[Rfam]
RNA sequence: ACAGUCUGAAAAUCACUUGGGGUCUCCUGUGGCCCCUGGUGCGAUAACUGUGCCAAGAGCAGAGGGAGCAUUAAACUCCCUCGUGGGCAUUAAAUUAAAGCCCACGGGAAAGUGUGGGGAGUGAUACCCAUGUUCCUAUAAUC
Dot-bracket structure: .....(.(.(...(((....((((......))))....)))...)..).)..............(.(((((.....((.((......................................)).)).....))))).).......
Numbered sequence: 001a002c003a004g005u006c007u008g009a010a011a012a013u014c015a016c017u018u019g020g021g022g023u024c025u026c027c028u029g030u031g032g033c034c035c036c037u038g039g040u041g042c043g044a045u046a047a048c049u050g051u052g053c054c055a056a057g058a059g060c061a062g063a064g065g066g067a068g069c070a071u072u073a074a075a076c077u078c079c080c081u082c083g084u085g086g087g088c089a090u091u092a093a094a095u096u097a098a099a100g101c102c103c104a105c106g107g108g109a110a111a112g113u114g115u116g117g118g119g120a121g122u123g124a125u126a127c128c129c130a131u132g133u134u135c136c137u138a139u140a141a142u143c
Stems, first nucleotide, its partner, number of pairs: 006050001008048001010045001014041003021034004065136001067134005077124002080121002